[Rfam]
Source information:
The record is an 87-nucleotide RNA sequence from Bordetella avium, which matches "sRNA-Xcc1" in Rfam. The family's consensus secondary structure was predicted with RNAalifold. The family has 74 seed sequences and 421 matches in Rfam 15.1. By type it is a small RNA. For this family Rfam cites "sRNA-Xcc1, an integron-encoded transposon- and plasmid-transferred trans-acting sRNA, is under the positive control of the key virulence regulators HrpG and HrpX of Xanthomonas campestris pathovar campestris" (Chen et al., RNA Biol, 2011). The organism belongs to Bordetella avium, within Bacteria.

RNA sequence: GGCCGGGAGGGCGACGGAUACAACACCCGAAAGGGAAAGAAGUCCGCUCGACUGCUUUCGAGUUCUUAACCUCCCGGCCACCUUGCU
Numbered sequence: 001g002g003c004c005g006g007g008a009g010g011g012c013g014a015c016g017g018a019u020a021c022a023a024c025a026c027c028c029g030a031a032a033g034g035g036a037a038a039g040a041a042g043u044c045c046g047c048u049c050g051a052c053u054g055c056u057u058u059c060g061a062g063u064u065c066u067u068a069a070c071c072u073c074c075c076g077g078c079c080a081c082c083u084u085g086c087u
Stems, first nucleotide, its partner, number of pairs: 001079009013044003026035003046063005